[Rfam]
RNA sequence: UCAUUUCUAUAUUUGUGGAAUGAAAAUUAUCUUAAACAAUACUUGGUGGUGGAAUAAUUUACGUCAAUCGUCGUGAACAAAGCUACUAUAGUAUUAAUCUAUAAAAACAAAAGGCUUGUC
Numbered sequence: 001u002c003a004u005u006u007c008u009a010u011a012u013u014u015g016u017g018g019a020a021u022g023a024a025a026a027u028u029a030u031c032u033u034a035a036a037c038a039a040u041a042c043u044u045g046g047u048g049g050u051g052g053a054a055u056a057a058u059u060u061a062c063g064u065c066a067a068u069c070g071u072c073g074u075g076a077a078c079a080a081a082g083c084u085a086c087u088a089u090a091g092u093a094u095u096a097a098u099c100u101a102u103a104a105a106a107a108c109a110a111a112a113g114g115c116u117u118g119u120c
Stems, first nucleotide, its partner, number of pairs: 035100001039094005045087002048084003058077003061071003
The record is a 120-nucleotide RNA sequence from Flavobacterium cellulosilyticum, which matches "Bacteroidete tryptophan peptide leader RNA" in Rfam.
The organism belongs to Flavobacterium, within Bacteria.
It scores 62 bits against the family's covariance model.
Its family is annotated with regulation of gene expression and S-adenosylmethionine metabolic process in the Gene Ontology.